[Rfam]
RNA sequence: ACAGUGGUCGCUGAGUUAGAGCUUAACAGCGUAAAACCACCGCCGGACACAAAGACGAAGAGG
Numbered sequence: 001a002c003a004g005u006g007g008u009c010g011c012u013g014a015g016u017u018a019g020a021g022c023u024u025a026a027c028a029g030c031g032u033a034a035a036a037c038c039a040c041c042g043c044c045g046g047a048c049a050c051a052a053a054g055a056c057g058a059a060g061a062g063g
Base pairs, nucleotide, nucleotide: 004040005039006038007037009031010030011029012028013027014023015022016021
A member of the RNA family "cow-rumen-1 RNA", 63 nucleotides long. Rfam classes the family as a small RNA.